[Rfam]
This 79-nucleotide sequence from Hermetia illucens belongs to the Rfam family "drz-agam-1 ribozyme".
It scores 42 bits against the family's covariance model.
The family has 7 seed sequences and 10,507 matches in Rfam 15.1.
The base pairs follow the family's consensus structure, which is taken from published work.
The organism belongs to Hermetia, within Eukaryota.
The literature on the family includes a 2009 paper in Science by Webb et al., "Widespread occurrence of self-cleaving ribozymes".
RNA sequence: UACUACCAAACCCUACCUCCACCUCCACGUGGUGUUCGCCGGGAGUUCUUUCUUAAUGAAAAGCUGCAGACGGAGAAGG
Numbered sequence: 001u002a003c004u005a006c007c008a009a010a011c012c013c014u015a016c017c018u019c020c021a022c023c024u025c026c027a028c029g030u031g032g033u034g035u036u037c038g039c040c041g042g043g044a045g046u047u048c049u050u051u052c053u054u055a056a057u058g059a060a061a062a063g064c065u066g067c068a069g070a071c072g073g074a075g076a077a078g079g
Stems, first nucleotide, its partner, number of pairs: 012079003016075001018073002021033003044065004049060002052058001